[Rfam]
RNA sequence: UUUGUGCGAACCAUUUAAAUGAAGUAGUGUAGUGAUUUAAAUGGUUCGCACCUGUU
Numbered sequence: 001u002u003u004g005u006g007c008g009a010a011c012c013a014u015u016u017a018a019a020u021g022a023a024g025u026a027g028u029g030u031a032g033u034g035a036u037u038u039a040a041a042u043g044g045u046u047c048g049c050a051c052c053u054g055u056u
Stems, first nucleotide, its partner, number of pairs: 004051017022033001
RNA: Plastid-ccsA-ndhD-2 3UTR RNA